[Rfam]
RNA sequence: CCUAGGGCUCGCGCCCUAGGCUUUAUGCUGCCGACGCUACGCGGCU
Numbered sequence: 001c002c003u004a005g006g007g008c009u010c011g012c013g014c015c016c017u018a019g020g021c022u023u024u025a026u027g028c029u030g031c032c033g034a035c036g037c038u039a040c041g042c043g044g045c046u
Stems, first nucleotide, its partner, number of pairs: 001020008033045001035043003